Rfam assigns this 80-nucleotide sequence from Strigamia maritima to the family "mir-31 microRNA precursor family". The family's consensus secondary structure was predicted with RNAalifold. Gene Ontology terms of the family: RISC complex and gene silencing by miRNA.

RNA sequence: GAGUUCAUGUUAGGCAAGAUGUUGGCAUAGCUGAGAUGAAUAAAUGCCAGCUGUGCUGCAUCGAGCCCACCUUGAAUUCA
Numbered sequence: 001g002a003g004u005u006c007a008u009g010u011u012a013g014g015c016a017a018g019a020u021g022u023u024g025g026c027a028u029a030g031c032u033g034a035g036a037u038g039a040a041u042a043a044a045u046g047c048c049a050g051c052u053g054u055g056c057u058g059c060a061u062c063g064a065g066c067c068c069a070c071c072u073u074g075a076a077u078u079c080a
Stems, first nucleotide, its partner, number of pairs: 005075003009071001011069001013067003018062004023058009
Background: Taxonomically the source falls in Strigamia (Eukaryota, Opisthokonta, Myriapoda, Chilopoda). A search with the family's covariance model found it, with a score of 62 bits. The literature on the family includes a 2010 paper in Genes Dev by Chiang et al., "Mammalian microRNAs: experimental evaluation of novel and previously annotated genes". Rfam 15.1 lists 1,181 matches to the family in 783 species.